[Rfam]
RNA sequence: CACCAUUCUCAGGGCGGGGUGAAACUCCCCACCGGCGGUAACUGUUCACACAGAAGCCCGCGAGCGCUCAUGCCACGCAUGAGGUCAGCAGAUCUGGUUCAAAUCCAGAGCCGACGGUUAAAGUCCGGAUAAAAGAGAUUGAGC
Number, nucleotide and partner (000 for none) at each position: 001c000002a000003c000004c141005a140006u000007u138008c137009u136010c135011a000012g000013g000014g000015c000016g000017g029018g028019g027020u000021g000022a000023a000024a000025c000026u000027c019028c018029c017030c000031a124032c123033c113034g112035g061036c060037g059038g058039u000040a000041a000042c000043u000044g000045u000046u000047c000048a000049c000050a000051c000052a000053g000054a000055a000056g111057c110058c038059c037060g036061c035062g000063a000064g089065c088066g000067c000068u000069c000070a000071u000072g000073c000074c000075a000076c000077g000078c000079a000080u000081g000082a000083g000084g000085u000086c000087a000088g065089c064090a000091g000092a000093u109094c108095u107096g106097g105098u000099u000100c000101a000102a000103a000104u000105c097106c096107a095108g094109a093110g057111c056112c034113g033114a000115c127116g126117g125118u000119u000120a000121a000122a000123g032124u031125c117126c116127g115128g000129a000130u000131a000132a000133a000134a000135g010136a009137g008138a007139u000140u005141g004142a000143g000144c000

Shown here is a 144-nucleotide RNA from Ephemeroptericola cinctiostellae, a member of the family "FMN riboswitch aptamer (RFN element)". It scores 111 bits against the family's covariance model.